[Rfam]
RNA sequence: UACUUUGUUAGUGAUGAUAACAAUCAUCAGAUGAGAAUCUCACUGAAAGAGACUGAGGAUUAAUUCUAAACUGAAACAGUA
Number, nucleotide and partner (000 for none) at each position: 001u081002a080003c079004u000005u000006u078007g077008u076009u075010a000011g000012u000013g000014a000015u000016g000017a000018u000019a000020a000021c000022a000023a000024u000025c000026a000027u000028c000029a000030g000031a000032u000033g000034a000035g000036a000037a000038u000039c000040u000041c000042a000043c000044u000045g000046a000047a000048a000049g000050a000051g000052a000053c000054u000055g000056a000057g000058g000059a000060u000061u000062a000063a000064u000065u000066c000067u000068a000069a000070a000071c000072u000073g000074a000075a009076a008077c007078a006079g003080u002081a001
This 81-nucleotide sequence from Nannospalax galili belongs to the Rfam family "Small nucleolar RNA SNORD79". The match comes from Rfam's covariance-model search (63 bits). Lineage of the source: Eukaryota > Vertebrata > Boreoeutheria > Spalacidae > Nannospalax. Gene Ontology terms of the family: RNA processing and nucleolus. snoRNA U79 or Z22 is found in intron 7 of the gas5 gene in humans and is also present in mice. The family's RNA type in Rfam is C/D-box small nucleolar RNA.